[Rfam]
RNA sequence: UGUUAAAAAUUUCAUCUAUUUUUACUAUUAAGAACUGGUCCCUAUAUCACGUGUUAUUGUAUGGUUAUUUCGUCAGCUACAUCGAUUAUUAACAGUACAAAUGGAUAAAAAUUUUAACA
Number, nucleotide and partner (000 for none) at each position: 001u000002g118003u117004u116005a115006a114007a113008a112009a000010u110011u109012u108013c000014a106015u105016c104017u000018a102019u101020u100021u099022u000023u097024a096025c095026u094027a000028u092029u091030a090031a089032g000033a087034a000035c000036u000037g000038g000039u000040c000041c000042c000043u000044a000045u000046a000047u000048c000049a000050c000051g000052u000053g000054u000055u000056a000057u000058u000059g000060u000061a000062u000063g000064g000065u000066u000067a000068u000069u000070u000071c000072g000073u000074c000075a000076g000077c000078u000079a000080c000081a000082u000083c000084g000085a000086u000087u033088a000089u031090u030091a029092a028093c000094a026095g025096u024097a023098c000099a021100a020101a019102u018103g000104g016105a015106u014107a000108a012109a011110a010111a000112u008113u007114u006115u005116a004117a003118c002119a000
RNA: MIR7502 microRNA precursor family